[Rfam]
Source information:
Streptomyces RNA 1601: a 206-nucleotide RNA from Streptomyces mobaraensis. On this family, see Vockenhuber et al., RNA Biol 2011: "Deep sequencing-based identification of small non-coding RNAs in Streptomyces coelicolor". Rfam describes the family as follows. Identified by deep sequencing of transcriptome at the end of exponential growth phase.
RNA sequence: AUCGACCGGUCGGACAUCUGCGUGCCCGACCCACAAGUGGAGGCUCCGCACUCCCACCUCGCCGGCUCACGGUCGGCAGGUCUCCGGUCAGACGGUCACCAUCGUUCCGUACGGACGAUGGAACCGUCCGAUAGCCCCACGGGUGCACCGUGGCGGUGUUCCGGUUGCAAUGGAGCCCCGCCUGUGUCCCGUCCGGGGCAUUUUUU
Numbered sequence: 001a002u003c004g005a006c007c008g009g010u011c012g013g014a015c016a017u018c019u020g021c022g023u024g025c026c027c028g029a030c031c032c033a034c035a036a037g038u039g040g041a042g043g044c045u046c047c048g049c050a051c052u053c054c055c056a057c058c059u060c061g062c063c064g065g066c067u068c069a070c071g072g073u074c075g076g077c078a079g080g081u082c083u084c085c086g087g088u089c090a091g092a093c094g095g096u097c098a099c100c101a102u103c104g105u106u107c108c109g110u111a112c113g114g115a116c117g118a119u120g121g122a123a124c125c126g127u128c129c130g131a132u133a134g135c136c137c138c139a140c141g142g143g144u145g146c147a148c149c150g151u152g153g154c155g156g157u158g159u160u161c162c163g164g165u166u167g168c169a170a171u172g173g174a175g176c177c178c179c180g181c182c183u184g185u186g187u188c189c190c191g192u193c194c195g196g197g198g199c200a201u202u203u204u205u206u
Stems, first nucleotide, its partner, number of pairs: 004089006012027002028082004035059001037057004041052002061077007091128005099121008134199005140191003149186003152182005158176005